[Rfam]
RNA sequence: UUUGCUUAGGUCUGUGGUUGAAAAUCGAUGCCAGUCGCAGGCGAAACGAUCCACGUAAGGAGUCAAAAUGGCUUUGAGCAUGGUGCGGCUUAGAUGUAAGUCCUGCCGAGUUGAGAAGUGGGAGGCGGGAAGUUGAAUGUGGGAAAGGGUGCAUUCAAACCCCGGCGAGAUGGAUAAUUCGAGAGAGGUAGUAGUGAGGGGAUGGGAAUCUGGUAGCGAACCUUCCAGCAGGCGAGUGUGGGGUCAAAGACCAGGUCGGCUAAGCAGC
Numbered sequence: 001u002u003u004g005c006u007u008a009g010g011u012c013u014g015u016g017g018u019u020g021a022a023a024a025u026c027g028a029u030g031c032c033a034g035u036c037g038c039a040g041g042c043g044a045a046a047c048g049a050u051c052c053a054c055g056u057a058a059g060g061a062g063u064c065a066a067a068a069u070g071g072c073u074u075u076g077a078g079c080a081u082g083g084u085g086c087g088g089c090u091u092a093g094a095u096g097u098a099a100g101u102c103c104u105g106c107c108g109a110g111u112u113g114a115g116a117a118g119u120g121g122g123a124g125g126c127g128g129g130a131a132g133u134u135g136a137a138u139g140u141g142g143g144a145a146a147g148g149g150u151g152c153a154u155u156c157a158a159a160c161c162c163c164g165g166c167g168a169g170a171u172g173g174a175u176a177a178u179u180c181g182a183g184a185g186a187g188g189u190a191g192u193a194g195u196g197a198g199g200g201g202a203u204g205g206g207a208a209u210c211u212g213g214u215a216g217c218g219a220a221c222c223u224u225c226c227a228g229c230a231g232g233c234g235a236g237u238g239u240g241g242g243g244u245c246a247a248a249g250a251c252c253a254g255g256u257c258g259g260c261u262a263a264g265c266a267g268c
Stems, first nucleotide, its partner, number of pairs: 002267008012259003015253005028239003031041001033090007050083002058075003062072003081246001102232005107181007185225004194217002201210003
A member of the RNA family "raiA RNA" from Methylomusa anaerophila, 268 nucleotides long.